RNA sequence: CUGCGGAGUAGAAGCGUUCACCGUGGUCCCCAACUUGGGGCGCUGGCCGGAAAUUGCUCCCCUC
Numbered sequence: 001c002u003g004c005g006g007a008g009u010a011g012a013a014g015c016g017u018u019c020a021c022c023g024u025g026g027u028c029c030c031c032a033a034c035u036u037g038g039g040g041c042g043c044u045g046g047c048c049g050g051a052a053a054u055u056g057c058u059c060c061c062c063u064c
Stems, first nucleotide, its partner, number of pairs: 005060006015049001018051002021046003026041005
The record is a 64-nucleotide RNA from Rubrivivax sp., which matches "Xanthine riboswitch aptamer (NMT1 RNA)" in Rfam. On this family, see Yu and Breaker, RNA 2020: "A bacterial riboswitch class senses xanthine and uric acid to regulate genes associated with purine oxidation". Rfam links the family to the GO term purine nucleobase binding.